[Rfam]
RNA sequence: CCUCCGUCCUCCCCGCACAGGAGGACGGAUCGAGGCAAGGCGUUCUCUGCCCUGACUACGCCCUGGCCUCAAGGUCGGCCCCACACGUGCCGGGGGGAACCGCACACCCCGCCGGCCGGGCGCCGACGGCUGCUCCGGGCUGCGGUGCCGGCGAGGUUGAGGGUCCUCGCCGAGCAC
Numbered sequence: 001c002c003u004c005c006g007u008c009c010u011c012c013c014c015g016c017a018c019a020g021g022a023g024g025a026c027g028g029a030u031c032g033a034g035g036c037a038a039g040g041c042g043u044u045c046u047c048u049g050c051c052c053u054g055a056c057u058a059c060g061c062c063c064u065g066g067c068c069u070c071a072a073g074g075u076c077g078g079c080c081c082c083a084c085a086c087g088u089g090c091c092g093g094g095g096g097g098a099a100c101c102g103c104a105c106a107c108c109c110c111g112c113c114g115g116c117c118g119g120g121c122g123c124c125g126a127c128g129g130c131u132g133c134u135c136c137g138g139g140c141u142g143c144g145g146u147g148c149c150g151g152c153g154a155g156g157u158u159g160a161g162g163g164u165c166c167u168c169g170c171c172g173a174g175c176a177c
Base pairs, nucleotide, nucleotide: 003029004028005027006026008024009023010022011021012020032070033069034068035067036066039062040061042059043058044055045054075126076125077124078123079122131147132146133145134144136142137141150171151170152169153168154167155166156165
This 177-nucleotide RNA sequence from Actinacidiphila alni belongs to the Rfam family "Streptomyces sRNA scr5239". On this family, see Vockenhuber et al., PLoS One 2015: "Identification of metE as a second target of the sRNA scr5239 in Streptomyces coelicolor". A search with the family's covariance model found it, with a score of 103 bits. NCBI's taxonomy places the organism under Bacteria, Actinomycetota, Actinomycetes, Kitasatosporales, Actinacidiphila. The family's RNA type in Rfam is small RNA.